The record is a 58-nucleotide sequence from Synechococcus sp. CC9605, which matches "psbNH RNA" in Rfam.
[Rfam]
RNA sequence: GGGUGGUUUGAUGUCUCGAUACUGUAGGGGCCGACUCCGGUUCGGGGUUGAUCCUGUC
Dot-bracket structure: ..........................((((.(((((((.....))))))).))))...